[Rfam]
RNA sequence: UGAUAUCUCUCGGGGUGCGCGUUUGCGCUGAGAUGGUCGAAUGACCGAACCCGCUGAACUUGAACUGGUUAGAACCAGCGUAGGGAAGAGAAUCAUUUAAUCG
Numbered sequence: 001u002g003a004u005a006u007c008u009c010u011c012g013g014g015g016u017g018c019g020c021g022u023u024u025g026c027g028c029u030g031a032g033a034u035g036g037u038c039g040a041a042u043g044a045c046c047g048a049a050c051c052c053g054c055u056g057a058a059c060u061u062g063a064a065c066u067g068g069u070u071a072g073a074a075c076c077a078g079c080g081u082a083g084g085g086a087a088g089a090g091a092a093u094c095a096u097u098u099a100a101u102c103g
Stems, first nucleotide, its partner, number of pairs: 006091005011053004016047001017028004035046004059084004065078004